Description
Small nucleolar RNA SNORD77: a 65-nucleotide RNA from Diceros bicornis. It is annotated as a C/D-box small nucleolar RNA. About the family: U77 belongs to the C/D family of snoRNAs. It is predicted to guide 2'O-ribose methylation of large 28S rRNA subunit at position A1521. Its family is annotated with nucleolus and RNA processing in the Gene Ontology. The source organism's lineage runs through Eukaryota, Craniata, Boreoeutheria, Diceros and Diceros bicornis.

RNA sequence: UUACUGUGAUGGUUGCAUAGUUCAGAUUGAAUUGUGAAGAGAUACACCAUUUGUCUAAGGUAAAG
Number, nucleotide and partner (000 for none) at each position: 001u063002u062003a061004c060005u000006g035007u034008g033009a032010u031011g000012g000013u025014u024015g023016c000017a000018u000019a000020g000021u000022u000023c015024a014025g013026a000027u000028u000029g000030a000031a010032u009033u008034g007035u006036g000037a000038a000039g000040a052041g051042a050043u049044a000045c000046a000047c000048c000049a043050u042051u041052u040053g000054u000055c000056u000057a000058a000059g000060g004061u003062a002063a001064a000065g000